Shown here is an 84-nucleotide sequence from Thalictrum thalictroides, a member of the family "Small nucleolar RNA SNORD25". The family is grouped with related families in Rfam's "SNORD25 clan". Its family is annotated with RNA processing and nucleolus in the Gene Ontology. For this family Rfam cites "Identification of 10 novel snoRNA gene clusters from Arabidopsis thaliana" (Qu et al., Nucleic Acids Res, 2001). The family's consensus secondary structure was predicted with PFOLD.

[Rfam]
RNA sequence: AACAACAAUGAUGAGCCUUACAGACCUGUAAUGAUUUUUGCGGGUAUGAUCGCAAUCUAAGAACAUCUAAGGGGCUGAGUUGUU
Numbered sequence: 001a002a003c004a005a006c007a008a009u010g011a012u013g014a015g016c017c018u019u020a021c022a023g024a025c026c027u028g029u030a031a032u033g034a035u036u037u038u039u040g041c042g043g044g045u046a047u048g049a050u051c052g053c054a055a056u057c058u059a060a061g062a063a064c065a066u067c068u069a070a071g072g073g074g075c076u077g078a079g080u081u082g083u084u
Stems, first nucleotide, its partner, number of pairs: 002083005